[Rfam]
RNA sequence: UCGCGUCAAGCGCCGAAGGCAGGAGCGGGGGAACCAAGGUAAGUGCCGGGAGCGGCCGUUGAGAGACGGUCACGCCACCGGCUAGGGGUUAAGCCGUGCGCUAGGUCGCACGACCGGGCAACUCACUCGCCCGAACCCGACAGCUCACCUCGCAGGCGUCGGUGAGGAGAAAC
Numbered sequence: 001u002c003g004c005g006u007c008a009a010g011c012g013c014c015g016a017a018g019g020c021a022g023g024a025g026c027g028g029g030g031g032a033a034c035c036a037a038g039g040u041a042a043g044u045g046c047c048g049g050g051a052g053c054g055g056c057c058g059u060u061g062a063g064a065g066a067c068g069g070u071c072a073c074g075c076c077a078c079c080g081g082c083u084a085g086g087g088g089u090u091a092a093g094c095c096g097u098g099c100g101c102u103a104g105g106u107c108g109c110a111c112g113a114c115c116g117g118g119c120a121a122c123u124c125a126c127u128c129g130c131c132c133g134a135a136c137c138c139g140a141c142a143g144c145u146c147a148c149c150u151c152g153c154a155g156g157c158g159u160c161g162g163u164g165a166g167g168a169g170a171a172a173c
Stems, first nucleotide, its partner, number of pairs: 011158004025153006035085001086138003095112005116132004
Background:
The family of this 173-nucleotide sequence is "c-di-AMP riboswitch aptamer (ydaO/yuaA leader)".